Source information:
Plastid-rpl16 group II-D1 intron: a 48-nucleotide RNA. Plastid-rpl16 is a non-coding RNA (ncRNA) recognised in plastids. It was recognised in and intronic region of a ribosome rpl16 gene. The literature on the family includes a 2023 paper in Plant Commun by Richter et al., "Retrograde signaling in plants: A critical review focusing on the GUN pathway and beyond". The base pairs follow the family's consensus structure, which was predicted with LocARNA.
[Rfam]
RNA sequence: AAGAGCCUCGACCCAAUAAAAAUUAAGAAAAUUGAGUCAAGAACAAAU
Numbered sequence: 001a002a003g004a005g006c007c008u009c010g011a012c013c014c015a016a017u018a019a020a021a022a023u024u025a026a027g028a029a030a031a032u033u034g035a036g037u038c039a040a041g042a043a044c045a046a047a048u
Base pairs, nucleotide, nucleotide: 007041008040010038011037012036014034015033016032017031